[Rfam]
RNA: Group II catalytic intron D1-D4-1
Organism: Desulfocapsa sulfexigens
RNA sequence: CACCACUUUGAGCAAUCGGAAUGGUGAGAAUGCAGAAGUCAGCAGAAGCCAUAGUAGCCCAAAGCCGGGGGUAAUGCCCCGGACACGGUGAAGGGC
Numbered sequence: 001c002a003c004c005a006c007u008u009u010g011a012g013c014a015a016u017c018g019g020a021a022u023g024g025u026g027a028g029a030a031u032g033c034a035g036a037a038g039u040c041a042g043c044a045g046a047a048g049c050c051a052u053a054g055u056a057g058c059c060c061a062a063a064g065c066c067g068g069g070g071g072u073a074a075u076g077c078c079c080c081g082g083a084c085a086c087g088g089u090g091a092a093g094g095g096c
Base pairs, nucleotide, nucleotide: 001026002025004023005022007020008019009018010017011016039046040045048096049095050094057089058088059087068080069079